RNA sequence: GUGUUUUUCAUGGUAUUAGAUUAUUAAGGUUAAGAAAGCAUAGGUUGUCGUGAGACAAUCUAUGUUUUUUUG
Numbered sequence: 001g002u003g004u005u006u007u008u009c010a011u012g013g014u015a016u017u018a019g020a021u022u023a024u025u026a027a028g029g030u031u032a033a034g035a036a037a038g039c040a041u042a043g044g045u046u047g048u049c050g051u052g053a054g055a056c057a058a059u060c061u062a063u064g065u066u067u068u069u070u071u072g
Base pairs, nucleotide, nucleotide: 043060044059045058046057047056048055049054
Rfam assigns this 72-nucleotide RNA from Prevotella sp. CAG:520 to the family "Bacteroidetes FopS (family of paralogous sRNAs)".
Rfam describes the family as follows. The RNA-binding protein RbpB and BTncRNA_FopS sRNA are involved in the post-transcription regulation of polysaccharide utilisation loci (PUL).
The family has 12 seed sequences and 822 matches in Rfam 15.1.
By type it is a small RNA.
It scores 68 bits against the family's covariance model.